[Rfam]
RNA sequence: GCCGCUUGGAUGGUUCCGGUGUGGGCUCAUUUCCCAUAACUAUAAAGUUCGAUUCUUUAAAGUGGCU
Numbered sequence: 001g002c003c004g005c006u007u008g009g010a011u012g013g014u015u016c017c018g019g020u021g022u023g024g025g026c027u028c029a030u031u032u033c034c035c036a037u038a039a040c041u042a043u044a045a046a047g048u049u050c051g052a053u054u055c056u057u058u059a060a061a062g063u064g065g066c067u
Base pairs, nucleotide, nucleotide: 001066002065003064004063005062006061007060011018012017021037022036023035024034025033043059044058045057046056047055